Shown here is a 65-nucleotide RNA sequence from Salmonella enterica, a member of the family "rdlD antitoxin".
The pairing is the family consensus, mapped onto this sequence.
NCBI's taxonomy places the organism under Bacteria, Pseudomonadota, Enterobacterales, Enterobacteriaceae, Salmonella enterica subsp. enterica serovar Paratyphi A.
Rfam's curators put it in the seed alignment.
The family's RNA type in Rfam is antitoxin RNA.
Its family is annotated with mRNA binding and negative regulation of translation in the Gene Ontology.
The literature on the family includes a 2002 paper in Mol Microbiol by Kawano et al., "Molecular characterization of long direct repeat (LDR) sequences expressing a stable mRNA encoding for a 35-amino-acid cell-killing peptide and a cis-encoded small antisense RNA in Escherichia coli".

RNA sequence: GUCUAGGGUCAAGUUAGCCCCCGUAAUGUUGCCGGUGAAUACCGAGCAAUGUGCGGGGGUUUUCU
Numbered sequence: 001g002u003c004u005a006g007g008g009u010c011a012a013g014u015u016a017g018c019c020c021c022c023g024u025a026a027u028g029u030u031g032c033c034g035g036u037g038a039a040u041a042c043c044g045a046g047c048a049a050u051g052u053g054c055g056g057g058g059g060u061u062u063u064c065u
Stems, first nucleotide, its partner, number of pairs: 016061009027051005034042001